This 151-nucleotide RNA from Paenibacillus pectinilyticus belongs to the Rfam family "FMN riboswitch aptamer (RFN element)". Pairs were carried over by alignment from the consensus structure, which is taken from published work. Lineage of the source: Bacteria > Bacillati > Bacillota > Bacilli > Paenibacillus.
[Rfam]
RNA sequence: AUGAACCUUCGGGGCAGGGUGAAAUCCCCUACCGGCGGUGAGGAUACGUACGUAUGUAUCUAAGCCCGCGACUCCUAAGCUGUAAUGGCUUGGGACUGACUUGGUGGAAUUCCAAGGCCGACGGUUAUAGUCCGGAUGGGAGAAGGUCAAG
Numbered sequence: 001a002u003g004a005a006c007c008u009u010c011g012g013g014g015c016a017g018g019g020u021g022a023a024a025u026c027c028c029c030u031a032c033c034g035g036c037g038g039u040g041a042g043g044a045u046a047c048g049u050a051c052g053u054a055u056g057u058a059u060c061u062a063a064g065c066c067c068g069c070g071a072c073u074c075c076u077a078a079g080c081u082g083u084a085a086u087g088g089c090u091u092g093g094g095a096c097u098g099a100c101u102u103g104g105u106g107g108a109a110u111u112c113c114a115a116g117g118c119c120g121a122c123g124g125u126u127a128u129a130g131u132c133c134g135g136a137u138g139g140g141a142g143a144a145g146g147u148c149a150a151g
Stems, first nucleotide, its partner, number of pairs: 005147006017029003031131002033120002035069004064118002073095002100116005122134003
Its family is annotated with FMN binding in the Gene Ontology.